[Rfam]
RNA sequence: GCCACUCUGAAAAGCGGGACACCGAUGUCCCCGCCGACGGUGAAAGCGCGACGCCGCGCGAAGCUCUCAGGCCAAUGACAGAGGGGGAGUU
Dot-bracket structure: .((.(((((......((((........)))).(((((..(.(...(((((....)))))....).))).)))......))))).)).....